[Rfam]
RNA sequence: GAUGAAUAUGGUGAUGGAGCUCGCCGUAAACGCCUGUUUUUAGGCUGAUGGCUCCUGCUCGCCC
Numbered sequence: 001g002a003u004g005a006a007u008a009u010g011g012u013g014a015u016g017g018a019g020c021u022c023g024c025c026g027u028a029a030a031c032g033c034c035u036g037u038u039u040u041u042a043g044g045c046u047g048a049u050g051g052c053u054c055c056u057g058c059u060c061g062c063c064c
Stems, first nucleotide, its partner, number of pairs: 010025004016055006032045004
Background: The family of this 64-nucleotide RNA sequence from Paenalicyclobacillus mengziensis is "Fluoride riboswitch aptamer (crcB RNA motif)". NCBI's taxonomy places the organism under Bacteria, Bacillota, Bacilli, Caryophanales, Paenalicyclobacillus. Its family is annotated with positive regulation of gene expression and response to fluoride in the Gene Ontology. The base pairs follow the family's consensus structure, which is taken from published work.